Source information
A member of the RNA family "Plant signal recognition particle RNA" from Phaseolus vulgaris, 305 nucleotides long. NCBI's taxonomy places the organism under Eukaryota, Embryophyta, Tracheophyta, Phaseoleae, Phaseolus.
[Rfam]
RNA sequence: GCCGAGCUAAGUUGCGAUAGCUUGUAACUCAUGUGAUGGCGUAAGGGUGAUUGAACUUAGUCAUGGCUACGCUCAGUUGGACUGGGGGUUGCUCUAUGCUGCCUGCCCACUUCAAGCCAGUAUUUGGUCAAUGGAAUUUGGGCGAAAGCUUGGAUUUCUUUGAUCCUAAAUCGAAGGGUAAUGCGUGAGGCUGGUUUCACAGAGCAGCGACAACCUUCCACUCUUGGCAGUGGAGGGAUAACGGGUUGCCUGCACCUUCGGCCCAUAAUCAACUGGGUGUGCCAAGCAUAUGAACCAUCAUUUUU
Number, nucleotide and partner (000 for none) at each position: 001g040002c039003c038004g023005a022006g021007c020008u019009a018010a000011g000012u000013u000014g000015c000016g000017a000018u009019a008020g007021c006022u005023u004024g000025u000026a000027a000028c000029u036030c035031a000032u000033g000034u000035g030036a029037u000038g003039g002040c001041g000042u000043a305044a304045g303046g302047g301048u300049g299050a298051u297052u000053g295054a000055a000056c292057u000058u290059a289060g000061u000062c286063a000064u284065g283066g282067c281068u000069a280070c279071g278072c277073u276074c275075a274076g273077u272078u271079g264080g263081a000082c261083u260084g259085g258086g257087g000088g256089u000090u254091g253092c252093u000094c000095u000096a000097u000098g249099c248100u000101g246102c245103c244104u243105g242106c000107c237108c236109a000110c235111u234112u233113c232114a231115a000116g228117c227118c226119a225120g224121u000122a222123u000124u220125u000126g165127g164128u163129c162130a161131a160132u000133g158134g157135a156136a155137u154138u153139u152140g151141g150142g149143c148144g000145a000146a000147a000148g143149c142150u141151u140152g139153g138154a137155u136156u135157u134158c133159u000160u131161u130162g129163a128164u127165c126166c000167u000168a000169a000170a000171u000172c000173g218174a217175a216176g215177g214178g000179u000180a000181a000182u000183g000184c209185g208186u207187g000188a000189g000190g000191c202192u201193g200194g000195u000196u000197u000198c000199a000200c193201a192202g191203a000204g000205c000206a000207g186208c185209g184210a000211c000212a000213a000214c177215c176216u175217u174218c173219c000220a124221c000222u122223c000224u120225u119226g118227g117228c116229a000230g000231u114232g113233g112234a111235g110236g108237g107238a000239u000240a000241a000242c105243g104244g103245g102246u101247u000248g099249c098250c000251u000252g092253c091254a090255c000256c088257u086258u085259c084260g083261g082262c000263c080264c079265a000266u000267a000268a000269u000270c000271a078272a077273c076274u075275g074276g073277g072278u071279g070280u069281g067282c066283c065284a064285a000286g062287c000288a000289u059290a058291u000292g056293a000294a000295c053296c000297a051298u050299c049300a048301u047302u046303u045304u044305u043